[Rfam]
The family of this 48-nucleotide RNA sequence from Chelativorans petroleitrophicus is "Guanidine-II riboswitch aptamer (mini-ykkC)". Lineage of the source: Bacteria > Pseudomonadota > Alphaproteobacteria > Hyphomicrobiales > Chelativorans. Rfam's curators write: Simpler in structure and has fewer highly conserved nucleotide positions than the ykkC-yxkD leader. The family's consensus secondary structure is taken from published work.

Nucleotides: 048
Stems, first nucleotide, its partner, number of pairs: 001020008035048005
Number, partner (000 for none) and nucleotide at each position: 001020g002019c003018g004017c005016g006015g007014g008013g009000a010000c011000g012000g013008c014007c015006c016005c017004g018003c019002g020001c021000a022000u023000u024000u025000c026000c027000c028000c029000u030000c031000c032000a033000g034000a035048u036047g037046a038045g039044g040000a041000c042000g043000g044039c045038c046037u047036c048035a